[Rfam]
RNA sequence: UUUCUGUAAUUAAAUGACAGAAUUGUGUGACAUAGUUUAACUUUGUGUAAUUGGUCGCCAAUUUUCAUGAAAUUAAACAACAAAAAAACUUUGUUCCGAUGAAGAAAUAGGGUAG
Numbered sequence: 001u002u003u004c005u006g007u008a009a010u011u012a013a014a015u016g017a018c019a020g021a022a023u024u025g026u027g028u029g030a031c032a033u034a035g036u037u038u039a040a041c042u043u044u045g046u047g048u049a050a051u052u053g054g055u056c057g058c059c060a061a062u063u064u065u066c067a068u069g070a071a072a073u074u075a076a077a078c079a080a081c082a083a084a085a086a087a088a089c090u091u092u093g094u095u096c097c098g099a100u101g102a103a104g105a106a107a108u109a110g111g112g113u114a115g
Stems, first nucleotide, its partner, number of pairs: 004020004035078005042072003047068002053064002079095006096112002